[Rfam]
RNA: mir-50 microRNA precursor family
Organism: Bursaphelenchus okinawaensis
RNA sequence: CCAACUCUGAUAUGUCUAGUAUUCUUGGGUUCAGUGACAAUUGGCAACCCUAAUGCUCGACAUAUCGGAGGUGGC
Numbered sequence: 001c002c003a004a005c006u007c008u009g010a011u012a013u014g015u016c017u018a019g020u021a022u023u024c025u026u027g028g029g030u031u032c033a034g035u036g037a038c039a040a041u042u043g044g045c046a047a048c049c050c051u052a053a054u055g056c057u058c059g060a061c062a063u064a065u066c067g068g069a070g071g072u073g074g075c
Stems, first nucleotide, its partner, number of pairs: 008067009018057005028049004
Dot-bracket structure: .......(((((((((.(((((.....((((..............))))...))))).)))))))))........